[Rfam]
RNA sequence: AAGUGAAAUGAUGUCUAUCAUCUUUUGACACUGACCUGAAAUAAAGAGAAUACUCAUUGCUGAUCACUU
Numbered sequence: 001a002a003g004u005g006a007a008a009u010g011a012u013g014u015c016u017a018u019c020a021u022c023u024u025u026u027g028a029c030a031c032u033g034a035c036c037u038g039a040a041a042u043a044a045a046g047a048g049a050a051u052a053c054u055c056a057u058u059g060c061u062g063a064u065c066a067c068u069u
Base pairs, nucleotide, nucleotide: 001069002068003067004066005065006064
Small nucleolar RNA SNORD2: a 69-nucleotide RNA sequence from Phyllostomus discolor.
Pairs were carried over by alignment from the consensus structure, which was predicted with WAR.
On this family, see Zhou et al., Gene 2004: "Identification of a novel box C/D snoRNA from mouse nucleolar cDNA library".
It is annotated as a C/D-box small nucleolar RNA.
NCBI's taxonomy places the organism under Eukaryota, Euteleostomi, Amniota, Theria, Phyllostomus.